This 190-nucleotide sequence from Hibiscus trionum belongs to the Rfam family "MIR828 microRNA precursor family".
RNA sequence: GUAAUGUUUCUUGCUCAAAUGAGUAUUCCAAUCACAGUUGCAUUUGCAUGUAUAUAUAUCAGUCCAAAACCAAAAAAAAAAAAAAAACAUGGGGUUUAUAUAAUCUCCAUGUUUACCAUGUGUUUGGAAUGGCUGGUAUGAUGCUUGUGUUUCUGCUUUCUGAGAUGCUCAUUUGAGCAAGCAAUGUUAA
Numbered sequence: 001g002u003a004a005u006g007u008u009u010c011u012u013g014c015u016c017a018a019a020u021g022a023g024u025a026u027u028c029c030a031a032u033c034a035c036a037g038u039u040g041c042a043u044u045u046g047c048a049u050g051u052a053u054a055u056a057u058a059u060c061a062g063u064c065c066a067a068a069a070c071c072a073a074a075a076a077a078a079a080a081a082a083a084a085a086a087a088c089a090u091g092g093g094g095u096u097u098a099u100a101u102a103a104u105c106u107c108c109a110u111g112u113u114u115a116c117c118a119u120g121u122g123u124u125u126g127g128a129a130u131g132g133c134u135g136g137u138a139u140g141a142u143g144c145u146u147g148u149g150u151u152u153c154u155g156c157u158u159u160c161u162g163a164g165a166u167g168c169u170c171a172u173u174u175g176a177g178c179a180a181g182c183a184a185u186g187u188u189a190a
Stems, first nucleotide, its partner, number of pairs: 004187005010181018029162002
Its family is annotated with RISC complex and miRNA-mediated post-transcriptional gene silencing in the Gene Ontology. The organism belongs to Hibiscus, within Eukaryota. A reference for the family is Ma et al. (2010), "Arabidopsis lyrata small RNAs: transient MIRNA and small interfering RNA loci within the Arabidopsis genus", Plant Cell.